The family of this 79-nucleotide RNA sequence from Cnephaeus nilssonii is "mir-9198 microRNA precursor family". Lineage of the source: Eukaryota > Opisthokonta > Gnathostomata > Vespertilionidae > Cnephaeus. Gene Ontology terms of the family: miRNA-mediated post-transcriptional gene silencing and RISC complex.
RNA sequence: GCUGCUGCUUGCACCUGCUGCUGGUGCCCGGCGCUGGUCCCGAUUGCUUGGCACUGUCAGUGGGUGCAAGCAGUGGCUG
Numbered sequence: 001g002c003u004g005c006u007g008c009u010u011g012c013a014c015c016u017g018c019u020g021c022u023g024g025u026g027c028c029c030g031g032c033g034c035u036g037g038u039c040c041c042g043a044u045u046g047c048u049u050g051g052c053a054c055u056g057u058c059a060g061u062g063g064g065u066g067c068a069a070g071c072a073g074u075g076g077c078u079g
Stems, first nucleotide, its partner, number of pairs: 004074017022056007